Notes: Shown here is a 128-nucleotide sequence from Chanos chanos, a member of the family "U4atac minor spliceosomal RNA". Rfam's curators write: U4atac is an essential component of the minor U12-type spliceosome complex which is required for removal of the rarer class of eukaryotic introns (AT-AC, U12-type). On this family, see Lorkovic et al., RNA 2005: "Evolutionary conservation of minor U12-type spliceosome between plants and humans".
Nucleotides: 128
Base pairs, nucleotide, nucleotide: 006018007017008016009015020060023058024057026055027054028053029052030051031050032049038046039045082115083114084113085112086111087110090104091103092102093101094100095099
Number, partner (000 for none) and nucleotide at each position: 001000g002000c003000u004000u005000u006018c007017c008016u009015u010000g011000u012000c013000u014000u015009g016008g017007g018006g019000u020060g021000a022000g023058a024057g025000a026055g027054c028053u029052a030051c031050c032049c033000a034000a035000u036000g037000a038046a039045c040000g041000u042000c043000u044000a045039g046038u047000g048000a049032g050031g051030g052029u053028a054027g055026c056000c057024c058023u059000g060020c061000u062000a063000a064000c065000a066000c067000c068000a069000u070000a071000c072000c073000a074000a075000c076000a077000c078000a079000u080000u081000c082115g083114c084113a085112u086111c087110a088000u089000c090104c091103u092102g093101u094100c095099c096000a097000c098000u099095g100094g101093a102092c103091a104090g105000g106000g107000c108000u109000c110087u111086g112085g113084u114083g115082c116000a117000a118000u119000u120000u121000u122000u123000g124000g125000a126000a127000c128000c
Its Rfam clan is "U4 clan".